[Rfam]
RNA sequence: CUAUGAGGUUUUCCUCGGCAGUUAACUGCAGCCGGUUUUUGAAUUCCUCGGCAGUUAACUGCCAAGGGGGCA
Numbered sequence: 001c002u003a004u005g006a007g008g009u010u011u012u013c014c015u016c017g018g019c020a021g022u023u024a025a026c027u028g029c030a031g032c033c034g035g036u037u038u039u040u041g042a043a044u045u046c047c048u049c050g051g052c053a054g055u056u057a058a059c060u061g062c063c064a065a066g067g068g069g070g071c072a
Stems, first nucleotide, its partner, number of pairs: 012069002015066001017063013

About this RNA
This 72-nucleotide RNA sequence from Medicago truncatula belongs to the Rfam family "MIR2629 microRNA precursor family". A search with the family's covariance model found it, with a score of 64 bits. Its family is annotated with miRNA-mediated post-transcriptional gene silencing and RISC complex in the Gene Ontology.